[Rfam]
RNA: Lysine riboswitch aptamer
RNA sequence: AACUAAGAUAGAGGCGCGAAAUUUAUGAGUAGUAUUAUGGACACAAGCAUAAUGAAAUAAUACGAAAGGAACUUUCGCCGAAGUAAAUAGUAAAUUGCUUUAAUACUAUUUGCUGGUUUUAUGUAGAAUAUGCAUAAAACUGUCACAAGUGAUUUGUGGAGAGCUAUUUUCAAU
Numbered sequence: 001a002a003c004u005a006a007g008a009u010a011g012a013g014g015c016g017c018g019a020a021a022u023u024u025a026u027g028a029g030u031a032g033u034a035u036u037a038u039g040g041a042c043a044c045a046a047g048c049a050u051a052a053u054g055a056a057a058u059a060a061u062a063c064g065a066a067a068g069g070a071a072c073u074u075u076c077g078c079c080g081a082a083g084u085a086a087a088u089a090g091u092a093a094a095u096u097g098c099u100u101u102a103a104u105a106c107u108a109u110u111u112g113c114u115g116g117u118u119u120u121a122u123g124u125a126g127a128a129u130a131u132g133c134a135u136a137a138a139a140c141u142g143u144c145a146c147a148a149g150u151g152a153u154u155u156g157u158g159g160a161g162a163g164c165u166a167u168u169u170u171c172a173a174u
Base pairs, nucleotide, nucleotide: 006169007168008167009166010165011164016078017077018076019075020074021073023071024070032063033062034061035060036059037058038057082114083113084112085111086110087109088108089107090106091105092104115141116140117139118138119137120136121135122134123133124132125131143159144158145157146156147155148154149153